[Rfam]
Nucleotides: 087
Stems, first nucleotide, its partner, number of pairs: 035066002039062002041058007
Number, partner (000 for none) and nucleotide at each position: 001000c002000a003000a004000g005000a006000c007000a008000a009000a010000a011000a012000c013000a014000a015000u016000g017000g018000a019000a020000g021000c022000c023000c024000u025000g026000c027000c028000u029000c030000u031000c032000a033000u034000c035066c036065a037000u038000c039062c040061u041058u042057g043056c044055a045054g046053c047052u048000c049000c050000g051000a052047a053046g054045c055044u056043g057042c058041g059000c060000c061040a062039g063000u064000g065036u066035g067000a068000a069000u070000u071000u072000g073000u074000c075000c076000g077000u078000u079000c080000c081000g082000a083000a084000a085000u086000g087000a
This 87-nucleotide RNA from Parageobacillus caldoxylosilyticus belongs to the Rfam family "BsrC".
The source organism's lineage runs through Bacteria, Bacillati, Bacilli, Anoxybacillaceae and Parageobacillus caldoxylosilyticus.
The match comes from Rfam's covariance-model search (76 bits).
About the family: The 301 nucleotide sequence from Kouji Nakamura has been trimmed to a highly conserved ~85 nucleotide long core to form this family.